[Rfam]
RNA: Eukaryotic large subunit ribosomal RNA, nucleotides 1427 to 1918
Organism: Rhizoctonia solani
RNA sequence: UUCCUGCCGAAGUUUCCCUCAGGAUAGCAGAGACUCGUAUCAGUUUUAUGUGGUAAAGCUAAUGAUUAGAAGCCUUGGGGUUGAAACAACCUUAACUUAUUCUCAAACUUUAAAUAUGUAAGCUCAGCGCGCUUUCUUAAUUGAAGCCGCUGUAAAUGAGAGUCUCUAGUGGGCCAUUUUUGGUAAGCAGAACUGGCGAUGCGGGAUGAACCGAACGCGAGGUUAAGGUGCCGGAAUAUACGCUCAUCAGACACCACAAAAGGUGUUAGUUCAUCUAGACAGCAGGACGGUGGCCAUGGAAGUCGGAAUCCGCUAAGGAGUGUGUAACAACUCACCUGCCGAAUGAACUAGCCCUGAAAAUGGAUGGCGCUCAAGCGUGUUACCCAUACCUCGCCGUCAACUCUUGUGCGAUGCGUUGACGAGUAGGCAGGCGUGGAGGUUUGUGACGAAGCCUUGGCAGCGAUGCUGGGUGAAACAGCCUCUAGUGCAGAU
Number, nucleotide and partner (000 for none) at each position: 001u000002u000003c431004c430005u429006g428007c427008c426009g000010a000011a000012g000013u026014u000015u024016c023017c022018c000019u000020c000021a000022g017023g016024a015025u000026a013027g000028c000029a167030g166031a165032g164033a163034c162035u161036c000037g000038u000039a000040u000041c000042a000043g000044u000045u122046u121047u120048a119049u118050g117051u116052g000053g000054u000055a000056a111057a109058g108059c000060u000061a000062a000063u105064g104065a103066u000067u000068a100069g000070a098071a097072g096073c000074c000075u095076u094077g093078g092079g091080g090081u000082u088083g000084a000085a000086a000087c000088a082089a000090c080091c079092u078093u077094a076095a075096c072097u071098u070099a000100u068101u000102c000103u065104c064105a063106a000107a000108c058109u057110u000111u056112a000113a000114a000115u000116a051117u050118g049119u048120a047121a046122g045123c000124u000125c152126a151127g150128c149129g148130c000131g147132c146133u145134u144135u000136c000137u000138u000139a000140a000141u000142u000143g000144a134145a133146g132147c131148c129149g128150c127151u126152g125153u000154a000155a000156a000157u000158g000159a000160g000161a035162g034163u033164c032165u031166c030167u029168a000169g000170u000171g000172g000173g197174c196175c195176a194177u000178u192179u191180u190181u189182g188183g000184u000185a000186a000187g000188c182189a181190g180191a179192a178193c000194u176195g175196g174197c173198g000199a000200u000201g000202c213203g212204g211205g000206a000207u000208g000209a000210a000211c204212c203213g202214a000215a000216c000217g394218c393219g392220a391221g390222g000223u388224u000225a000226a000227g384228g383229u382230g000231c000232c000233g000234g000235a000236a381237u000238a380239u000240a000241c377242g376243c375244u000245c000246a000247u000248c000249a000250g000251a000252c000253a000254c000255c000256a000257c000258a000259a000260a000261a355262g354263g353264u000265g352266u351267u350268a349269g348270u347271u346272c345273a344274u343275c000276u000277a000278g000279a000280c000281a000282g339283c338284a337285g336286g335287a000288c312289g311290g310291u000292g000293g000294c306295c305296a000297u000298g000299g000300a000301a000302g000303u000304c000305g295306g294307a000308a000309u000310c290311c289312g288313c317314u000315a000316a000317g313318g333319a000320g000321u000322g331323u330324g000325u000326a000327a000328c000329a000330a323331c322332u000333c318334a000335c286336c285337u284338g283339c282340c000341g000342a000343a274344u273345g272346a271347a270348c269349u268350a267351g266352c265353c263354c262355u261356g000357a000358a000359a000360a000361u000362g000363g000364a000365u000366g000367g000368c000369g000370c000371u000372c000373a000374a000375g243376c242377g241378u000379g000380u238381u236382a229383c228384c227385c000386a000387u000388a223389c000390c221391u220392c219393g218394c217395c421396g420397u419398c418399a417400a416401c415402u000403c413404u000405u000406g000407u000408g000409c000410g000411a000412u000413g403414c000415g401416u400417u399418g398419a397420c396421g395422a000423g000424u000425a000426g008427g007428c006429a005430g004431g003432c487433g000434u484435g483436g482437a481438g480439g479440u478441u477442u000443g476444u475445g000446a000447c000448g000449a000450a000451g471452c470453c000454u000455u000456g000457g466458c465459a464460g000461c000462g000463a000464u459465g458466c457467u000468g000469g000470g452471u451472g000473a000474a000475a444476c443477a441478g440479c439480c438481u437482c436483u435484a434485g000486u000487g432488c000489a000490g000491a000492u000